[Rfam]
RNA sequence: UUAGCUAUUUUAGAUAGGUUUGUGUUCAUGAAAUCAUGGAUGCAAACGACACGCAGUUUGUAUCUAUGAUGGCUAAAGAGUUUUAAGAUGACUUUUGCCACAUAGAUGAAAAUCUAUAGUGGCUUUUAAUUUUCCUUUGCAGAGGUAGGCUCAUUGUAGAUUUUUCAU
Numbered sequence: 001u002u003a004g005c006u007a008u009u010u011u012a013g014a015u016a017g018g019u020u021u022g023u024g025u026u027c028a029u030g031a032a033a034u035c036a037u038g039g040a041u042g043c044a045a046a047c048g049a050c051a052c053g054c055a056g057u058u059u060g061u062a063u064c065u066a067u068g069a070u071g072g073c074u075a076a077a078g079a080g081u082u083u084u085a086a087g088a089u090g091a092c093u094u095u096u097g098c099c100a101c102a103u104a105g106a107u108g109a110a111a112a113u114c115u116a117u118a119g120u121g122g123c124u125u126u127u128a129a130u131u132u133u134c135c136u137u138u139g140c141a142g143a144g145g146u147a148g149g150c151u152c153a154u155u156g157u158a159g160a161u162u163u164u165u166c167a168u
Stems, first nucleotide, its partner, number of pairs: 001076007011066006018047012050060002053057001081143003085137003091130001097123005103116003
Source information:
This 168-nucleotide RNA from Enterococcus florum belongs to the Rfam family "Enterococcus sRNA 2410". The family has 3 seed sequences and 74 matches in Rfam 15.1. A search with the family's covariance model found it, with a score of 77 bits. The literature on the family includes a 2017 paper in Sci Rep by Sinel et al., "Small RNAs in vancomycin-resistant Enterococcus faecium involved in daptomycin response and resistance".